The family of this 188-nucleotide RNA from Marinithermofilum abyssi is "Lysine riboswitch aptamer". Taxonomically the source falls in Marinithermofilum (Bacteria, Bacillati, Bacilli, Thermoactinomycetaceae). The match comes from Rfam's covariance-model search (127 bits).

RNA sequence: UGGUGGGGUAGAGGUCGCGGCUUUUAUUAGUACCUCGCAGGAGGGGCAGGGACACUGAUGAUGGCGAGGGAAAGGAAAAGCCGCCGAAGUUCGUACGUAUCUCUGGGCGUGCGGGCUGGGCCUGUGUCCGAACAGGAACAGGACUGUCACACCGGUUUUUCAAACCGGCGUGGAGAGCUACAGCGAAA
Dot-bracket structure: .......((((.....(((((((((.......((((((.(.....................).))))))......)))))))))...(((((((((((........)))))))))))((.(((((.((......)).))))).)).((((.((((.........)))).))))....)))).......